[Rfam]
RNA sequence: ACUCAACGAGGGCGGAACAGGCGGCCGCCACGCCAGAGAUGGUCUUUUAAGAGAUGCGUGAGUGCCAACACGCCGUUGAGU
Numbered sequence: 001a002c003u004c005a006a007c008g009a010g011g012g013c014g015g016a017a018c019a020g021g022c023g024g025c026c027g028c029c030a031c032g033c034c035a036g037a038g039a040u041g042g043u044c045u046u047u048u049a050a051g052a053g054a055u056g057c058g059u060g061a062g063u064g065c066c067a068a069c070a071c072g073c074c075g076u077u078g079a080g081u
Stems, first nucleotide, its partner, number of pairs: 001081008011029005020066004031051001032043004056073005
RNA: skipping-rope RNA